Rfam assigns this 156-nucleotide RNA sequence from Ruminococcus sp. AM42-11 to the family "Clostridiales-1 RNA". The organism belongs to Ruminococcus, within Bacteria.
RNA sequence: UGAUACCAGUGUCAACAGGUCAAAAAGCUGUUCGUGCUUGCACAAUAAGGCUUUUGAACUUGGAUGAGAAAGCAGCGAUUUACGCAGUAAAUCAGCGGAUUUCGAAUAUUUGAAGGAUUGCGGGAGCAGCGCAGCUGCGUAGCAAUCCGGGUAUCA
Numbered sequence: 001u002g003a004u005a006c007c008a009g010u011g012u013c014a015a016c017a018g019g020u021c022a023a024a025a026a027g028c029u030g031u032u033c034g035u036g037c038u039u040g041c042a043c044a045a046u047a048a049g050g051c052u053u054u055u056g057a058a059c060u061u062g063g064a065u066g067a068g069a070a071a072g073c074a075g076c077g078a079u080u081u082a083c084g085c086a087g088u089a090a091a092u093c094a095g096c097g098g099a100u101u102u103c104g105a106a107u108a109u110u111u112g113a114a115g116g117a118u119u120g121c122g123g124g125a126g127c128a129g130c131g132c133a134g135c136u137g138c139g140u141a142g143c144a145a146u147c148c149g150g151g152u153a154u155c156a
Stems, first nucleotide, its partner, number of pairs: 001156007011059001020058001023055007031047001032045001034043003064107002068103004075096002077093007115148007126138004
Dot-bracket structure: (((((((...(........(..(((((((.((.(((....))).).).)))))))..))....((..((((...(((((((((...))))))).))...))))..)).......(((((((....((((.....))))...))))))).)))))))